[Rfam]
RNA sequence: AUACUCAUGUAAUCGCUGCUUGUUUUAAUGCGAGCAGAGGAAAGUCCAUGCUCACACAAACUGAGAUGUUUGUAGUGUUCGUGCUUGACGAAAUCAUAAGUCAAGGUAACCUUUAUGGUUAACGGCAGGGGAAGUUCCUAAGUCCUUCUGGAUAUGGAAUAAGAUCCUUGAAAGUGCCACAGUGACGUAGCCGAAGUGGAAACACUUUGGGUGGAACGAGGUAAACCCCACGAGUGAGCAACCCAAAUAAUGGUAGGGGCAUCUUUUAGUAGGGAAUUCAACCGAACAAAGGACAAGUAUAACUUGUAGAUAGAUGAUUACAACCAAUGGUACAAGGUUGACCACCGUUUGUAGUACUAAGGUACAGAACAUGGCUUAUCGAG
Numbered sequence: 001a002u003a004c005u006c007a008u009g010u011a012a013u014c015g016c017u018g019c020u021u022g023u024u025u026u027a028a029u030g031c032g033a034g035c036a037g038a039g040g041a042a043a044g045u046c047c048a049u050g051c052u053c054a055c056a057c058a059a060a061c062u063g064a065g066a067u068g069u070u071u072g073u074a075g076u077g078u079u080c081g082u083g084c085u086u087g088a089c090g091a092a093a094u095c096a097u098a099a100g101u102c103a104a105g106g107u108a109a110c111c112u113u114u115a116u117g118g119u120u121a122a123c124g125g126c127a128g129g130g131g132a133a134g135u136u137c138c139u140a141a142g143u144c145c146u147u148c149u150g151g152a153u154a155u156g157g158a159a160u161a162a163g164a165u166c167c168u169u170g171a172a173a174g175u176g177c178c179a180c181a182g183u184g185a186c187g188u189a190g191c192c193g194a195a196g197u198g199g200a201a202a203c204a205c206u207u208u209g210g211g212u213g214g215a216a217c218g219a220g221g222u223a224a225a226c227c228c229c230a231c232g233a234g235u236g237a238g239c240a241a242c243c244c245a246a247a248u249a250a251u252g253g254u255a256g257g258g259g260c261a262u263c264u265u266u267u268a269g270u271a272g273g274g275a276a277u278u279c280a281a282c283c284g285a286a287c288a289a290a291g292g293a294c295a296a297g298u299a300u301a302a303c304u305u306g307u308a309g310a311u312a313g314a315u316g317a318u319u320a321c322a323a324c325c326a327a328u329g330g331u332a333c334a335a336g337g338u339u340g341a342c343c344a345c346c347g348u349u350u351g352u353a354g355u356a357c358u359a360a361g362g363u364a365c366a367g368a369a370c371a372u373g374g375c376u377u378a379u380c381g382a383g
Base pairs, nucleotide, nucleotide: 004383005382006381007379008322009321010320011319012318013317014316016037017036018035019034020033021032042377043376044375046374047373048372049371050370051238052237053236054235055234056073057072058071059070060069061068079233080232081231082230083229084105085104086103087102088101089100106123107121108120109119110118111117124228125227127168128167129166130165135159136158137157138156142153143152144151174226175225176222177221178220191210192209193208194207195206196205197204198203242258243257244256262292263291264290265289266288293307294306295305296304297303298302325362328359329358330357331356332355333354

The record is a 383-nucleotide sequence from Oceanobacillus limi, which matches "Bacterial RNase P class B" in Rfam. The family's consensus secondary structure is taken from published work. NCBI's taxonomy places the organism under Bacteria, Bacillati, Bacilli, Bacillaceae, Oceanobacillus. The family is grouped with related families in Rfam's "RNaseP clan". On this family, see Frank and Pace, Annu Rev Biochem 1998: "Ribonuclease P: unity and diversity in a tRNA processing ribozyme".